[Rfam]
Iron response element II: a 31-nucleotide RNA from Notothenia coriiceps.
A reference for the family is Cmejla et al. (2006), "A novel iron responsive element in the 3'UTR of human MRCKalpha", Biochem Biophys Res Commun.
A search with the family's covariance model found it, with a score of 36 bits.
From the family's description: IRE, TFRC, SLC40A1, SDHB, SLC11A2, CDC42BPA, ACO2, ALAS2_H.SAPIENS, CDC14A, EPAS1, ALAS2, qoxD, Hao1, NDUFS1, transferrin, Aconitate.
Taxonomically the source falls in Notothenia (Eukaryota, Deuterostomia, Eurypterygia, Notothenioidei).
Rfam 15.1 lists 5,197 matches to the family in 722 species.
Its family is annotated with response to iron ion in the Gene Ontology.
Pairs were carried over by alignment from the consensus structure, which is taken from published work.

RNA sequence: UUAUUAUCGGGAACAGUGUUUCCCAUAAUCC
Numbered sequence: 001u002u003a004u005u006a007u008c009g010g011g012a013a014c015a016g017u018g019u020u021u022c023c024c025a026u027a028a029u030c031c
Stems, first nucleotide, its partner, number of pairs: 003029005009024005014018001